[Rfam]
RNA sequence: UGCACAGGACGACCUGUGCCGAUGUGUUUCAUCGGGGACGGCCCC
Dot-bracket structure: .(((((((....)))))))..............((((....))))

Rfam assigns this 45-nucleotide sequence from Phytoamicus setariae to the family "Guanidine-II riboswitch aptamer (mini-ykkC)". NCBI's taxonomy places the organism under Bacteria, Pseudomonadota, Hyphomicrobiales, Rhizobiaceae, Phytoamicus.